[Rfam]
RNA sequence: UCUCCCGCUUCUCCUCCCUGAGCGGGUGUCCUGAUGCUAGUCGGGACGUUUUGACCUCGGUUAUUCUCCCCUUUAACCGAGGUUUUUUUCU
Numbered sequence: 001u002c003u004c005c006c007g008c009u010u011c012u013c014c015u016c017c018c019u020g021a022g023c024g025g026g027u028g029u030c031c032u033g034a035u036g037c038u039a040g041u042c043g044g045g046a047c048g049u050u051u052u053g054a055c056c057u058c059g060g061u062u063a064u065u066c067u068c069c070c071c072u073u074u075a076a077c078c079g080a081g082g083u084u085u086u087u088u089u090c091u
Stems, first nucleotide, its partner, number of pairs: 004026006028047007055081001057079001059077001061075001